Description:
Rfam assigns this 80-nucleotide RNA sequence from Chelativorans petroleitrophicus to the family "Makes More Granules Regulator RNA (mmgR)". Lineage of the source: Bacteria > Pseudomonadati > Pseudomonadota > Hyphomicrobiales > Chelativorans. By type it is a small RNA.
RNA sequence: GUCCAGUGCCCGCCUUGGGCGUUUCCUCCCUAGACUUAUGACCGUGUCGUGUAAACGAUACGGUCUCUUUUUAAUGACUU
Dot-bracket structure: .......((((.....))))...................(((((((((........)))))))))...............
The family has 87 seed sequences and 1,791 matches in Rfam 15.1. It scores 55 bits against the family's covariance model.